c-di-GMP-I riboswitch aptamer: a 92-nucleotide sequence from Desulfofundulus salinus. The source organism's lineage runs through Bacteria, Bacillota, Clostridia, Peptococcaceae and Desulfofundulus. The match comes from Rfam's covariance-model search (83 bits).
[Rfam]
RNA sequence: AGCGAAAAAAGGCAAACCUGCCGAAAGGCAGGGGCGCAAAGCCGCGGGCCUAAAGCGGCAUGCAAGGCCGCCAUGGCAGCCGGGCUGCCGAA
Numbered sequence: 001a002g003c004g005a006a007a008a009a010a011g012g013c014a015a016a017c018c019u020g021c022c023g024a025a026a027g028g029c030a031g032g033g034g035c036g037c038a039a040a041g042c043c044g045c046g047g048g049c050c051u052a053a054a055g056c057g058g059c060a061u062g063c064a065a066g067g068c069c070g071c072c073a074u075g076g077c078a079g080c081c082g083g084g085c086u087g088c089c090g091a092a
Base pairs, nucleotide, nucleotide: 012037013036017032018031019030020029021028022027040086041085042084043083045082046081047080048077049076050075055071056070057069058068